[Rfam]
RNA sequence: GCCAAUAUGUUGCCUUUAUCUGCAUUUGCACCUGCACCUUACUUUUGUUUUCUUGAAAAAGUUCAAGAAUCAAGAUUUUAAUUUCUCUCUUAUCUGCAUACCCACCAGAGAUUUUUUUUUUUUUUUUAAUUUUGAUUCUAGAGAAGUUGGAAACAAAGGGAAUAAAGGUGCAGGUGUGAGUGCAGGUGAAUGCCAUUUUGGC
Dot-bracket structure: (((((.(((..((.(((((((((((((((((((((((((..............................................................................................................................))))))))))))))))))))))))).))))).)))))
Numbered sequence: 001g002c003c004a005a006u007a008u009g010u011u012g013c014c015u016u017u018a019u020c021u022g023c024a025u026u027u028g029c030a031c032c033u034g035c036a037c038c039u040u041a042c043u044u045u046u047g048u049u050u051u052c053u054u055g056a057a058a059a060a061g062u063u064c065a066a067g068a069a070u071c072a073a074g075a076u077u078u079u080a081a082u083u084u085c086u087c088u089c090u091u092a093u094c095u096g097c098a099u100a101c102c103c104a105c106c107a108g109a110g111a112u113u114u115u116u117u118u119u120u121u122u123u124u125u126u127u128a129a130u131u132u133u134g135a136u137u138c139u140a141g142a143g144a145a146g147u148u149g150g151a152a153a154c155a156a157a158g159g160g161a162a163u164a165a166a167g168g169u170g171c172a173g174g175u176g177u178g179a180g181u182g183c184a185g186g187u188g189a190a191u192g193c194c195a196u197u198u199u200g201g202c
Stems, first nucleotide, its partner, number of pairs: 001202005007196003012193002015190025